The record is a 45-nucleotide sequence from Desulfonema ishimotonii, which matches "Acido-Lenti-1 RNA" in Rfam. The source organism's lineage runs through Bacteria, Desulfobacteria, Desulfobacterales, Desulfococcaceae and Desulfonema. Pairs were carried over by alignment from the consensus structure, which is taken from published work.

RNA sequence: CCCGGGGCUUCGCCCCGGGCUAUGAUAUUUCGCCCCUUCGGAGCU
Numbered sequence: 001c002c003c004g005g006g007g008c009u010u011c012g013c014c015c016c017g018g019g020c021u022a023u024g025a026u027a028u029u030u031c032g033c034c035c036c037u038u039c040g041g042a043g044c045u
Stems, first nucleotide, its partner, number of pairs: 001019008032044002035041002
Dot-bracket structure: ((((((((...))))))))............((.((...)).)).